[Rfam]
RNA sequence: UGACUUUGUCCUACGUCAAACUUCUCUAACUUUGACCAAACUUAUAGAAAAAUAUAUUGACAUCUACAAUGCCAAAUAAAUGCAGUAACAAGACAAUUUCGUGGUGGAUUUAAUGAAAUAAAACUGAUUCGAUGUUCUAGAUGUUGGUAUAUUUUUCUAUAAAUUUAGACAGAGUUAGAGAAGUUUGACUUAGGACAAAACUAA
Dot-bracket structure: ....(((((.(((.((((((((((((....((((..........((((((((..(((.((((((((.(....(.(((.................................................))).)....).)))))))).)))..))))))))..........))))....)))))))))))).))).))))).....
RNA: MIR1435 microRNA precursor family